[Rfam]
RNA sequence: UCCCUCGCUCCGGGGUGCGAACGGCCGCAGGCCGCCUUCGCUGAGAUGGCCACACCAAACCCGUGAACUUGAACCGGUUCGUACCGGCGUAAGAAGAGCUUGUCGGGCCAGG
Numbered sequence: 001u002c003c004c005u006c007g008c009u010c011c012g013g014g015g016u017g018c019g020a021a022c023g024g025c026c027g028c029a030g031g032c033c034g035c036c037u038u039c040g041c042u043g044a045g046a047u048g049g050c051c052a053c054a055c056c057a058a059a060c061c062c063g064u065g066a067a068c069u070u071g072a073a074c075c076g077g078u079u080c081g082u083a084c085c086g087g088c089g090u091a092a093g094a095a096g097a098g099c100u101u102g103u104c105g106g107g108c109c110a111g112g
Stems, first nucleotide, its partner, number of pairs: 007099004011063004016057001017041005048056002068093004074087004

The record is a 112-nucleotide sequence from Ramlibacter monticola, which matches "TPP riboswitch aptamer (THI element)" in Rfam. Lineage of the source: Bacteria > Pseudomonadota > Burkholderiales > Comamonadaceae > Ramlibacter. From the family's description: Vitamin B(1) in its active form thiamin pyrophosphate (TPP) is an essential coenzyme that is synthesised by coupling of pyrimidine and thiazole moieties in bacteria. The previously detected thiamin-regulatory element, thi box was extended, resulting in a new, highly conserved RNA secondary structure, the THI element, which is widely distributed in eubacteria and also occurs in some archaea. Analysis of operon structures identified a large number of new candidate thiamin-regulated genes, mostly transporters, in various prokaryotic organisms. The THI element is a riboswitch that directly binds to TPP to regulate gene expression through a variety of mechanisms in archaea, bacteria and eukaryotes. through a variety of mechanisms in archaea, bacteria and eukaryotes. Tandem TPP riboswitches have been reported where both TPP riboswitches respond independently to TPP. The structure of TPP riboswitch has been reported for Escherichia coli and Arabidopsis thaliana. The family's consensus secondary structure is taken from published work. It scores 55 bits against the family's covariance model.